[Rfam]
RNA sequence: CAAGUAGGGCAGAUAAUCGCGCCUGCAAGCGCCGAAAGGCCGCAGGCGAGGAAAGUCCGGGCUUCACAGGGCAGGAUGCCGGUUAACGGCCGGUGGAGGCGACUCCAAGGAAAGUGCAACAGAAAUGUACCGCUAUUAGGAAUAAUAGUAAGGGUGGAAGGGCAGUGUAAGGGACUACCGCCCGGCUGGCAACAGCCGGGGCAUAUGUAAACCCCAUCCGAAGCAAGGCCGAACAAAAGCGUUGACGUGGCCCGCCAGCUUUAGGUAGGCCGCUGGAUUUAGCUGGCGACAGCUAAACUAGACAGAUGAUUAUCCAAGACAUAACCCGGCUUACAGCCCUGCUUGGUUC
Numbered sequence: 001c002a003a004g005u006a007g008g009g010c011a012g013a014u015a016a017u018c019g020c021g022c023c024u025g026c027a028a029g030c031g032c033c034g035a036a037a038g039g040c041c042g043c044a045g046g047c048g049a050g051g052a053a054a055g056u057c058c059g060g061g062c063u064u065c066a067c068a069g070g071g072c073a074g075g076a077u078g079c080c081g082g083u084u085a086a087c088g089g090c091c092g093g094u095g096g097a098g099g100c101g102a103c104u105c106c107a108a109g110g111a112a113a114g115u116g117c118a119a120c121a122g123a124a125a126u127g128u129a130c131c132g133c134u135a136u137u138a139g140g141a142a143u144a145a146u147a148g149u150a151a152g153g154g155u156g157g158a159a160g161g162g163c164a165g166u167g168u169a170a171g172g173g174a175c176u177a178c179c180g181c182c183c184g185g186c187u188g189g190c191a192a193c194a195g196c197c198g199g200g201g202c203a204u205a206u207g208u209a210a211a212c213c214c215c216a217u218c219c220g221a222a223g224c225a226a227g228g229c230c231g232a233a234c235a236a237a238a239g240c241g242u243u244g245a246c247g248u249g250g251c252c253c254g255c256c257a258g259c260u261u262u263a264g265g266u267a268g269g270c271c272g273c274u275g276g277a278u279u280u281a282g283c284u285g286g287c288g289a290c291a292g293c294u295a296a297a298c299u300a301g302a303c304a305g306a307u308g309a310u311u312a313u314c315c316a317a318g319a320c321a322u323a324a325c326c327c328g329g330c331u332u333a334c335a336g337c338c339c340u341g342c343u344u345g346g347u348u349c
Base pairs, nucleotide, nucleotide: 001345002344003343004342005341006340007339008338009337010336012314013313014312015311016310017309018308020048021047022046023045024044025043026042053332054331055330057329058328059327060326061325062223063222064221065220069252070251072249074219075218076217077216078215079093080092081091082090083089094108095106096105097104098103109214110213114212115211116208117207118206130153131152132149133148134147135146136145137144138143161179162178164176165175166174180202181200182199183198184197185196186195187194188193227271228270229269230268236262237261238260239259240258244256246254247253278297279296280295281294282293283292284291285290

The record is a 349-nucleotide RNA from Lachnospiraceae bacterium A2, which matches "Bacterial RNase P class A" in Rfam. Gene Ontology terms of the family: tRNA processing, dimeric ribonuclease P complex and ribonuclease P activity. The base pairs follow the family's consensus structure, which is taken from published work. Taxonomically the source falls in Lachnospiraceae (Bacteria, Bacillati, Clostridia, Lachnospirales).